[Rfam]
RNA sequence: CAGCAGGAAUGCGAGUGAUGGAUGCCUAGGCGCACACGACCGAAGAAGGACGGGGACUCCCGCCGAAACGGGUAGGCGAGCCGGAGUCAGGCUGCGACCCUACCAUCUCCGAAUGGGGCAACCCCACCACCGUGAUGGGUGGUGAUCCGUAUCUGAAUCUAUAGGAUACGGAAGGGCACCGGGGGAACUGAAACAUCUCACGUACCCCGAGGAACAGAAACAAUUCUCGUAGUAGCGGCGAGCGAACCGGGAAGAGCCUAAACGGCGCACGUGUCAAGCAGGACAGCGUUGCGUGUGCCGGGUUGCGAGACCUCCAGAUUGGCAUGUCCUUGCCAGUAGCAAGUUACAAACGCGAGCUUUAGGGGAAUGGCCCUGGAACGGCCAACCAGAGCGGGUGAGAGUCCCGUACCCGGAAAGGCGAGCACUUGCGUGAGGGAUCUCAAGUACGACGGGACACGCGAAAUCCCGUCGGAAGCAGGGGUGACCACACUCCAAGGCAGAAUAUCGUGGGCGACCGAUAGCGCAGAGUACCGUGAGGGAACGGUGAAAAGCACCCUGGCGAAGGGAGUGAAACAGAUCCUGAAAUUGCUCGCAGACAAA
Numbered sequence: 001c002a003g004c005a006g007g008a009a010u011g012c013g014a015g016u017g018a019u020g021g022a023u024g025c026c027u028a029g030g031c032g033c034a035c036a037c038g039a040c041c042g043a044a045g046a047a048g049g050a051c052g053g054g055g056a057c058u059c060c061c062g063c064c065g066a067a068a069c070g071g072g073u074a075g076g077c078g079a080g081c082c083g084g085a086g087u088c089a090g091g092c093u094g095c096g097a098c099c100c101u102a103c104c105a106u107c108u109c110c111g112a113a114u115g116g117g118g119c120a121a122c123c124c125c126a127c128c129a130c131c132g133u134g135a136u137g138g139g140u141g142g143u144g145a146u147c148c149g150u151a152u153c154u155g156a157a158u159c160u161a162u163a164g165g166a167u168a169c170g171g172a173a174g175g176g177c178a179c180c181g182g183g184g185g186a187a188c189u190g191a192a193a194c195a196u197c198u199c200a201c202g203u204a205c206c207c208c209g210a211g212g213a214a215c216a217g218a219a220a221c222a223a224u225u226c227u228c229g230u231a232g233u234a235g236c237g238g239c240g241a242g243c244g245a246a247c248c249g250g251g252a253a254g255a256g257c258c259u260a261a262a263c264g265g266c267g268c269a270c271g272u273g274u275c276a277a278g279c280a281g282g283a284c285a286g287c288g289u290u291g292c293g294u295g296u297g298c299c300g301g302g303u304u305g306c307g308a309g310a311c312c313u314c315c316a317g318a319u320u321g322g323c324a325u326g327u328c329c330u331u332g333c334c335a336g337u338a339g340c341a342a343g344u345u346a347c348a349a350a351c352g353c354g355a356g357c358u359u360u361a362g363g364g365g366a367a368u369g370g371c372c373c374u375g376g377a378a379c380g381g382c383c384a385a386c387c388a389g390a391g392c393g394g395g396u397g398a399g400a401g402u403c404c405c406g407u408a409c410c411c412g413g414a415a416a417g418g419c420g421a422g423c424a425c426u427u428g429c430g431u432g433a434g435g436g437a438u439c440u441c442a443a444g445u446a447c448g449a450c451g452g453g454a455c456a457c458g459c460g461a462a463a464u465c466c467c468g469u470c471g472g473a474a475g476c477a478g479g480g481g482u483g484a485c486c487a488c489a490c491u492c493c494a495a496g497g498c499a500g501a502a503u504a505u506c507g508u509g510g511g512c513g514a515c516c517g518a519u520a521g522c523g524c525a526g527a528g529u530a531c532c533g534u535g536a537g538g539g540a541a542c543g544g545u546g547a548a549a550a551g552c553a554c555c556c557u558g559g560c561g562a563a564g565g566g567a568g569u570g571a572a573a574c575a576g577a578u579c580c581u582g583a584a585a586u587u588g589c590u591c592g593c594a595g596a597c598a599a600a
Stems, first nucleotide, its partner, number of pairs: 010594009024580001025544002029516002031513003035509005040175002048110003051065003071104006080092003115124003125144007146172009179211001180209005190197002224502001225252005235243002256498003263300011307441003311435004348427002352423002356419005362411003368384004373380001387391001393405003447471008478493005531538002554566004
Shown here is a 600-nucleotide part of an RNA from Herpetosiphon aurantiacus, a member of the family "Bacterial large subunit ribosomal RNA". Gene Ontology terms of the family: ribosome and structural constituent of ribosome. The family has 102 seed sequences and 51,934 matches in Rfam 15.1.